[Rfam]
RNA sequence: UGCGGGAUGCCGAAGACGGGUUCCGCAUCAGAGUACUUGCUGAUAAUUCAGGAGAUUCGCAAUGAGC
Numbered sequence: 001u002g003c004g005g006g007a008u009g010c011c012g013a014a015g016a017c018g019g020g021u022u023c024c025g026c027a028u029c030a031g032a033g034u035a036c037u038u039g040c041u042g043a044u045a046a047u048u049c050a051g052g053a054g055a056u057u058c059g060c061a062a063u064g065a066g067c
Base pairs, nucleotide, nucleotide: 001027002026003025004024005023006022007021008020010019011018012017031058032057036054037053038052040051041050042049043048
Shown here is a 67-nucleotide RNA from Pseudomonas aeruginosa, a member of the family "Repression of heat shock gene expression (ROSE) element". Gene Ontology terms of the family: regulation of translation and response to temperature stimulus. By type it is an RNA thermoregulator. A reference for the family is Krajewski et al. (2013), "Short ROSE-Like RNA Thermometers Control IbpA Synthesis in Pseudomonas Species", PLoS One.